[Rfam]
RNA sequence: GAUUCGGGAAUUGGCCACUACCUCGCACUCACGUGAUGCACUCAAAACGCCGACGAGGACGUCCAAAUUCCAUUUUCUCGUUUUCCUCUGUCGUUUUGCGUUGAUUUCAUAUUUCAUGUGAUGUGACGUAGUGGAACAUUCCUGGCG
Numbered sequence: 001g002a003u004u005c006g007g008g009a010a011u012u013g014g015c016c017a018c019u020a021c022c023u024c025g026c027a028c029u030c031a032c033g034u035g036a037u038g039c040a041c042u043c044a045a046a047a048c049g050c051c052g053a054c055g056a057g058g059a060c061g062u063c064c065a066a067a068u069u070c071c072a073u074u075u076u077c078u079c080g081u082u083u084u085c086c087u088c089u090g091u092c093g094u095u096u097u098g099c100g101u102u103g104a105u106u107u108c109a110u111a112u113u114u115c116a117u118g119u120g121a122u123g124u125g126a127c128g129u130a131g132u133g134g135a136a137c138a139u140u141c142c143u144g145g146c147g
Stems, first nucleotide, its partner, number of pairs: 004145007015134007023126004029121004034116003
Dot-bracket structure: ...(((((((....(((((((.((((..((((.(((.............................................................................))).)))).)))).)))))))....)))))))..
RNA: mir-989 microRNA precursor family